[Rfam]
RNA: Guanidine-I riboswitch aptamer
Organism: Trichocoleus sp. FACHB-832
RNA sequence: AUUCAUAGCUUCUAGGGUUCCGGUUUGAAUCUGAGGGUUUAAACGACUGGUCCAAGAGAAGCUAAUCAGCGUGAUCGGAUUAGCUGAUGACACGGCGGGAAAAAAGCCCGGGAGAG
Numbered sequence: 001a002u003u004c005a006u007a008g009c010u011u012c013u014a015g016g017g018u019u020c021c022g023g024u025u026u027g028a029a030u031c032u033g034a035g036g037g038u039u040u041a042a043a044c045g046a047c048u049g050g051u052c053c054a055a056g057a058g059a060a061g062c063u064a065a066u067c068a069g070c071g072u073g074a075u076c077g078g079a080u081u082a083g084c085u086g087a088u089g090a091c092a093c094g095g096c097g098g099g100a101a102a103a104a105a106g107c108c109c110g111g112g113a114g115a116g
Stems, first nucleotide, its partner, number of pairs: 007063006015053002020050002022047001023044008065088006091111001093114001097109003